[Rfam]
RNA sequence: UAUUAUGAUAGAGGCGCAGGUUUCAAGAGUAAUUUGCUGCAAAAGGCUGGGCAGCCGCAGCAGAUGAAAGGGGAAACUGCCGAAGAAGCCAAAACAGCCCGGGUUUUGCUUCUGGGACACUGUAGAAUAUGCAGUGUACUGUCACGGAAUCGUGGAGCGCUAUCAGCAUU
Numbered sequence: 001u002a003u004u005a006u007g008a009u010a011g012a013g014g015c016g017c018a019g020g021u022u023u024c025a026a027g028a029g030u031a032a033u034u035u036g037c038u039g040c041a042a043a044a045g046g047c048u049g050g051g052c053a054g055c056c057g058c059a060g061c062a063g064a065u066g067a068a069a070g071g072g073g074a075a076a077c078u079g080c081c082g083a084a085g086a087a088g089c090c091a092a093a094a095c096a097g098c099c100c101g102g103g104u105u106u107u108g109c110u111u112c113u114g115g116g117a118c119a120c121u122g123u124a125g126a127a128u129a130u131g132c133a134g135u136g137u138a139c140u141g142u143c144a145c146g147g148a149a150u151c152g153u154g155g156a157g158c159g160c161u162a163u164c165a166g167c168a169u170u
Stems, first nucleotide, its partner, number of pairs: 006165006016080004021075004032065008084113006091106003095102001114140002117137008142155005